RNA sequence: ACCGGUCCUCGGUAGUGGCCCCCGGGCCGCCGCACGCCGGCCCCGGGCGCUUCGAUCGAAGACCGGC
Numbered sequence: 001a002c003c004g005g006u007c008c009u010c011g012g013u014a015g016u017g018g019c020c021c022c023c024g025g026g027c028c029g030c031c032g033c034a035c036g037c038c039g040g041c042c043c044c045g046g047g048c049g050c051u052u053c054g055a056u057c058g059a060a061g062a063c064c065g066g067c
Stems, first nucleotide, its partner, number of pairs: 002066006009059005017051003021047006030039001
RNA: Actino-pnp RNA